[Rfam]
RNA sequence: GGCGAUAAACGUUCGAUGGAAUAAGCCUUUCGGACCCGGGGGCGGUACCCGGCGCCUCCACCGGAUGUCACGAUGAUCAUCGAAAUCGUGGCAUGCGGCGGGGGCGAAAUAGGAUCGACGAGGGUGUAAAGAUCGAAUUUUCGCUCGGAAUGGUACCGCCGUUAUCGGGCCUUAUAAAUAGUUGCCAACGACAACUAUGCGGAAGCUCGUCUCGCUGCGUAA
Number, nucleotide and partner (000 for none) at each position: 001g145002g144003c143004g142005a141006u000007a000008a000009a000010c000011g000012u000013u000014c135015g134016a133017u132018g000019g000020a000021a000022u000023a000024a000025g000026c124027c123028u122029u000030u121031c120032g119033g000034a000035c000036c052037c051038g050039g049040g048041g000042g000043c000044g000045g000046u000047a000048c040049c039050c038051g037052g036053c106054g105055c104056c103057u102058c101059c100060a000061c000062c000063g000064g000065a000066u000067g000068u000069c000070a000071c000072g000073a000074u000075g000076a000077u000078c000079a000080u000081c000082g000083a000084a000085a000086u000087c000088g000089u000090g000091g000092c000093a000094u000095g000096c000097g000098g000099c000100g059101g058102g057103g056104g055105c054106g053107a000108a000109a000110u000111a000112g000113g000114a000115u000116c000117g000118a000119c032120g031121a030122g028123g027124g026125u000126g000127u000128a000129a000130a000131g000132a017133u016134c015135g014136a000137a000138u000139u000140u000141u005142c004143g003144c002145u001146c161147g160148g159149a000150a000151u000152g000153g000154u000155a000156c000157c000158g000159c148160c147161g146162u000163u000164a000165u000166c000167g000168g000169g000170c000171c000172u000173u000174a000175u000176a000177a000178a000179u000180a000181g000182u000183u000184g000185c000186c000187a000188a000189c000190g000191a000192c000193a000194a000195c000196u000197a000198u000199g000200c000201g000202g000203a000204a000205g000206c000207u000208c000209g000210u000211c000212u000213c000214g000215c000216u000217g000218c000219g000220u000221a000222a000
Rfam assigns this 222-nucleotide sequence from Jiella flava to the family "permuted transfer-messenger RNA". The match comes from Rfam's covariance-model search (149 bits). It is annotated as a non-coding RNA gene. From the family's description: Bacterial tmRNA, also known as 10Sa RNA or SsrA, is named for its dual tRNA and mRNA-like properties.